[Rfam]
The record is an 82-nucleotide sequence from Lathyrus oleraceus, which matches "Small nucleolar RNA R16" in Rfam. It scores 53 bits against the family's covariance model. Pairs were carried over by alignment from the consensus structure, which was predicted with PFOLD. Rfam links the family to the GO terms nucleolus and RNA processing. The source organism's lineage runs through Eukaryota, Streptophytina, Gunneridae, Pentapetalae and Lathyrus. Rfam classes the family as a C/D-box small nucleolar RNA.
RNA sequence: UUUGGCAUAUGAUGAUGAAAUCUUAUCCUACACACCGAAUUUACAGUGGGGAAUGAAACUCUCAUUAUUAUCUGAUGUCUUG
Numbered sequence: 001u002u003u004g005g006c007a008u009a010u011g012a013u014g015a016u017g018a019a020a021u022c023u024u025a026u027c028c029u030a031c032a033c034a035c036c037g038a039a040u041u042u043a044c045a046g047u048g049g050g051g052a053a054u055g056a057a058a059c060u061c062u063c064a065u066u067a068u069u070a071u072c073u074g075a076u077g078u079c080u081u082g
Stems, first nucleotide, its partner, number of pairs: 004079004